[Rfam]
RNA sequence: GGGUGUCUAAAUCUAUUUGACUCGAUUUAGACAGGUAUUAGUGUCGGUCGGGCCGCCGCA
Numbered sequence: 001g002g003g004u005g006u007c008u009a010a011a012u013c014u015a016u017u018u019g020a021c022u023c024g025a026u027u028u029a030g031a032c033a034g035g036u037a038u039u040a041g042u043g044u045c046g047g048u049c050g051g052g053c054c055g056c057c058g059c060a
Base pairs, nucleotide, nucleotide: 005032006031007030008029009028010027011026012025042060043059044058046057047056048055

The record is a 60-nucleotide RNA, which matches "nhaA-I RNA" in Rfam. The sequence is in the family's curated seed alignment. Acidobacteria, Alphaproteobacteria, Betaproteobacteria and Gammaproteobacteria, Verrucomicrobia, cand. division NC10. Pairs were carried over by alignment from the consensus structure, which is taken from published work.